Plastid-psbA-4 3UTR RNA: a 60-nucleotide RNA sequence from Helianthus annuus. The literature on the family includes a 2023 paper in Plant Commun by Richter et al., "Retrograde signaling in plants: A critical review focusing on the GUN pathway and beyond". Rfam describes the family as follows. Plastid psbA-4 is a non-coding RNA (ncRNA) present in plastids. The base pairs follow the family's consensus structure, which was predicted with LocARNA. By type it is a cis-regulatory element.

RNA sequence: CUAAAAAAGGAGCAAUAGCUUCCCUCUUGAUAAAACAAGAGGACGUUAUUGCUCCUUUUU
Numbered sequence: 001c002u003a004a005a006a007a008a009g010g011a012g013c014a015a016u017a018g019c020u021u022c023c024c025u026c027u028u029g030a031u032a033a034a035a036c037a038a039g040a041g042g043a044c045g046u047u048a049u050u051g052c053u054c055c056u057u058u059u060u
Base pairs, nucleotide, nucleotide: 006058007057008056009055010054011053012052013051014050015049016048017047021043024041025040026039027038028037029036